[Rfam]
RNA sequence: GCCCCUGUAGCUCAGACGGAUAGAGCACCGGUUUCGUAGCCGGCGGUCGUGGGUUCGAAUCCUCCCAGGGGCG
Numbered sequence: 001g002c003c004c005c006u007g008u009a010g011c012u013c014a015g016a017c018g019g020a021u022a023g024a025g026c027a028c029c030g031g032u033u034u035c036g037u038a039g040c041c042g043g044c045g046g047u048c049g050u051g052g053g054u055u056c057g058a059a060u061c062c063u064c065c066c067a068g069g070g071g072c073g
Stems, first nucleotide, its partner, number of pairs: 001072007010026004028043005049065001051063003
RNA: tRNA